The family of this 173-nucleotide RNA sequence from Calditerricola satsumensis is "Group II catalytic intron D1-D4-3". About the family: Group II introns are found in rRNA, tRNA and mRNA of organelles in fungi, plants and protists, and also in mRNA in bacteria. Pairs were carried over by alignment from the consensus structure.
RNA sequence: UCCGCCGCGAGGCGGAGUCUGAAGGAAGCCGGCGGCAAACCUCCGGCCCGACGAACAGGAACCCCAUACGGGGCUGCCUGUGCUUGGACCAGUCUGCACAACAAGACAAAGUCCUUGCCGCCGAAGAGCACAGGCAGUAAAUGGGGCGGGGAGAUGGAGAGAAAGACAGUGCU
Numbered sequence: 001u002c003c004g005c006c007g008c009g010a011g012g013c014g015g016a017g018u019c020u021g022a023a024g025g026a027a028g029c030c031g032g033c034g035g036c037a038a039a040c041c042u043c044c045g046g047c048c049c050g051a052c053g054a055a056c057a058g059g060a061a062c063c064c065c066a067u068a069c070g071g072g073g074c075u076g077c078c079u080g081u082g083c084u085u086g087g088a089c090c091a092g093u094c095u096g097c098a099c100a101a102c103a104a105g106a107c108a109a110a111g112u113c114c115u116u117g118c119c120g121c122c123g124a125a126g127a128g129c130a131c132a133g134g135c136a137g138u139a140a141a142u143g144g145g146g147c148g149g150g151g152a153g154a155u156g157g158a159g160a161g162a163a164a165g166a167c168a169g170u171g172c173u
Base pairs, nucleotide, nucleotide: 001016002015003014004013005012006011028173030171031170036165041159042158043157044156045155047150048149049148050147062146063145064144065143066142067141073138074137075136077134078133079132080131081130082129083128086114087113088112089111092107093106094105095104
Dot-bracket structure: ((((((....))))))...........(.((....(....(((((.((((...........((((((.....(((.(((((((..((((..((((........))))...)))).............))))))).)))..))))))))))....))))).....)....)).)